[Rfam]
RNA sequence: UUCUCUAGUUAGUUUUGCAGGGUUGCAUCCAGCUGUUACAGAUUUGCUGUGCAAAUCCAUGCAAAACUGACUAUGGUG
Numbered sequence: 001u002u003c004u005c006u007a008g009u010u011a012g013u014u015u016u017g018c019a020g021g022g023u024u025g026c027a028u029c030c031a032g033c034u035g036u037u038a039c040a041g042a043u044u045u046g047c048u049g050u051g052c053a054a055a056u057c058c059a060u061g062c063a064a065a066a067c068u069g070a071c072u073a074u075g076g077u078g
Stems, first nucleotide, its partner, number of pairs: 003076002006073014020058002023054006031048003
About this RNA
This 78-nucleotide sequence from Callorhinchus milii belongs to the Rfam family "mir-19 microRNA precursor family". Clan: mir-19 clan.